This 104-nucleotide RNA from Mycolicibacterium austroafricanum belongs to the Rfam family "mraW RNA".
The family has 45 seed sequences and 851 matches in Rfam 15.1.
Rfam's curators put it in the seed alignment.

RNA sequence: GCAGGCCCGUGCAGUGCGGCCUCUGCCCGAACCGGCCCUGACGUACUUCCCCGACGUCAGGUCCGCACCCUCGGACAGGGACCUCACUGCAGGGGCCGCCCCGA
Number, nucleotide and partner (000 for none) at each position: 001g000002c000003a000004g000005g000006c000007c000008c000009g000010u091011g090012c089013a088014g087015u086016g085017c000018g083019g082020c000021c080022u079023c078024u077025g076026c000027c074028c073029g072030a071031a000032c000033c065034g064035g063036c000037c061038c060039u059040g058041a057042c056043g055044u054045a000046c000047u000048u000049c000050c000051c000052c000053g000054a044055c043056g042057u041058c040059a039060g038061g037062u000063c035064c034065g033066c000067a000068c000069c000070c000071u030072c029073g028074g027075a000076c025077a024078g023079g022080g021081a000082c019083c018084u000085c016086a015087c014088u013089g012090c011091a010092g000093g000094g000095g000096c000097c000098g000099c000100c000101c000102c000103g000104a000

About this RNA
The organism belongs to Mycolicibacterium austroafricanum, within Bacteria. The base pairs follow the family's consensus structure, which is taken from published work. Rfam classes the family as a cis-regulatory element.